[Rfam]
RNA sequence: GUAGGUUACGGCGAUAUGUGUCCAAUCACCCUUGGAGGUAAACUCGUUGGAACACUGUGUGCAAUUGCUGGGGUCUUGACUAUCGCUCUUCCUGUUCCUGUCAUUGUAUCCAAC
Numbered sequence: 001g002u003a004g005g006u007u008a009c010g011g012c013g014a015u016a017u018g019u020g021u022c023c024a025a026u027c028a029c030c031c032u033u034g035g036a037g038g039u040a041a042a043c044u045c046g047u048u049g050g051a052a053c054a055c056u057g058u059g060u061g062c063a064a065u066u067g068c069u070g071g072g073g074u075c076u077u078g079a080c081u082a083u084c085g086c087u088c089u090u091c092c093u094g095u096u097c098c099u100g101u102c103a104u105u106g107u108a109u110c111c112a113a114c
Stems, first nucleotide, its partner, number of pairs: 001114002004111002007108005013102004018097001020095002037077002040074001050062001
Dot-bracket structure: ((.((.(((((.((((.(.((...............((.(.........(...........)...........).))................)).).)))).))))).)).))

This 114-nucleotide sequence from Polypterus senegalus belongs to the Rfam family "Potassium channel RNA editing signal". The family's consensus secondary structure is taken from published work. By type it is a cis-regulatory element. This family represents a group of sequences related to the human potassium channel Kv1.1 hairpin element which directs the efficient modification of an adenosine to inosine by an adenosine deaminase acting on RNA (ADAR). It scores 99 bits against the family's covariance model. For this family Rfam cites "Control of human potassium channel inactivation by editing of a small mRNA hairpin" (Bhalla et al., Nat Struct Mol Biol, 2004).